[Rfam]
RNA sequence: UAAUUAAUUUUUUAAACACACACACAUAUCGACACAUACACUUGGGUGCGUUUAAACCAAAUUAGCGGUUUAAAUGUUGGUGCUAUGGGAUAUGUGGAGGCCUAAC
Numbered sequence: 001u002a003a004u005u006a007a008u009u010u011u012u013u014a015a016a017c018a019c020a021c022a023c024a025c026a027u028a029u030c031g032a033c034a035c036a037u038a039c040a041c042u043u044g045g046g047u048g049c050g051u052u053u054a055a056a057c058c059a060a061a062u063u064a065g066c067g068g069u070u071u072a073a074a075u076g077u078u079g080g081u082g083c084u085a086u087g088g089g090a091u092a093u094g095u096g097g098a099g100g101c102c103u104a105a106c
Base pairs, nucleotide, nucleotide: 023096024095025094026093027092028091029090030089035087036086037085038084040081041080042079048077049076050075051074052073053072054071055070056069057068

Rfam assigns this 106-nucleotide RNA from Pseudoalteromonas ulvae to the family "t44 RNA". It scores 74 bits against the family's covariance model. For this family Rfam cites "Transcriptome analysis of Escherichia coli using high-density oligonucleotide probe arrays" (Tjaden et al., Nucleic Acids Res, 2002).